[Rfam]
RNA sequence: UGACGUCAAGCGGGAGAGGCCGGAUGAAAAGAUACCGGCGCCGAAGGAGCAACCGCCCCGGAAACUCUCAGGCAAAUGGACCGCUUGCCGAUA
Dot-bracket structure: ......(((((((......((((...........)))).(((((..(((...((.....))...))))).))).......)))))))......
RNA: Glycine riboswitch aptamer